Rfam assigns this 424-nucleotide RNA sequence from Caenibius tardaugens to the family "Bacterial RNase P class A".
RNA sequence: CCAGGGGGCCGGGCAGCCGCGUCGAAGCUUCGCUUCGCCGAGGAAAGUCCGGGCUCCACGAAACAAGGGUGGCGGGUAACGCCCGCCGGGUGUUCGGCUUGCCGGGCAUUCAGGGAAAGUGCCACAGAGAGCAUACCGCUAACCGGGAAACCGGCAGUAAGGGUGAAAGGGUGCGGUAAGAGCGCACCGCGCGACUGGCGACAGGAGCGGCAUGGCAAACCCCACCCGGAGCAAGGCCGAAUAGGGGCGGCGCGCCAAGGAUCGCAAGAUCCGGAAGCAGGGGUGUUUCGCCUUUGAUCGCCCGGGUUGGCUGCUUGAGCCUUGCGGCAACGCAAGGCCUAGAGGAAUGGCUGCCAUUGCGGAUACGGUCUCUCGUGGGAUACCGUCCGUGAUACAGAACCCGGCUUACAGGCCCCCUGGCAAA
Numbered sequence: 001c002c003a004g005g006g007g008g009c010c011g012g013g014c015a016g017c018c019g020c021g022u023c024g025a026a027g028c029u030u031c032g033c034u035u036c037g038c039c040g041a042g043g044a045a046a047g048u049c050c051g052g053g054c055u056c057c058a059c060g061a062a063a064c065a066a067g068g069g070u071g072g073c074g075g076g077u078a079a080c081g082c083c084c085g086c087c088g089g090g091u092g093u094u095c096g097g098c099u100u101g102c103c104g105g106g107c108a109u110u111c112a113g114g115g116a117a118a119g120u121g122c123c124a125c126a127g128a129g130a131g132c133a134u135a136c137c138g139c140u141a142a143c144c145g146g147g148a149a150a151c152c153g154g155c156a157g158u159a160a161g162g163g164u165g166a167a168a169g170g171g172u173g174c175g176g177u178a179a180g181a182g183c184g185c186a187c188c189g190c191g192c193g194a195c196u197g198g199c200g201a202c203a204g205g206a207g208c209g210g211c212a213u214g215g216c217a218a219a220c221c222c223c224a225c226c227c228g229g230a231g232c233a234a235g236g237c238c239g240a241a242u243a244g245g246g247g248c249g250g251c252g253c254g255c256c257a258a259g260g261a262u263c264g265c266a267a268g269a270u271c272c273g274g275a276a277g278c279a280g281g282g283g284u285g286u287u288u289c290g291c292c293u294u295u296g297a298u299c300g301c302c303c304g305g306g307u308u309g310g311c312u313g314c315u316u317g318a319g320c321c322u323u324g325c326g327g328c329a330a331c332g333c334a335a336g337g338c339c340u341a342g343a344g345g346a347a348u349g350g351c352u353g354c355c356a357u358u359g360c361g362g363a364u365a366c367g368g369u370c371u372c373u374c375g376u377g378g379g380a381u382a383c384c385g386u387c388c389g390u391g392a393u394a395c396a397g398a399a400c401c402c403g404g405c406u407u408a409c410a411g412g413c414c415c416c417c418u419g420g421c422a423a424a
Base pairs, nucleotide, nucleotide: 001420002419003418004417005416006415007414008413009412010411011409012355013354014353015352016351017350018349020040021039023037024036025035026034027033028032045407046406047405049404050403051402052401053400054231055230056229057228063288065286067227068226069225070224071223072086073085074084075083076082087113088111089110090109091108092107093106094105095104096103097102114222115221119220120219121216122215123214136162137161138158139157140156143154144153145152146151170188171187172186173185174184175183189211190209191208192207195204196203197202235312236311237310238309245303246302247301248300249299250298280294281293282292283291284290319338320337321336322335323334324333325332326331

Rfam classes the family as a ribozyme. Its family is annotated with ribonuclease P activity, tRNA processing and dimeric ribonuclease P complex in the Gene Ontology. Rfam describes the family as follows. Ribonuclease P (RNase P) is a ubiquitous endoribonuclease, found in archaea, bacteria and eukarya as well as chloroplasts and mitochondria.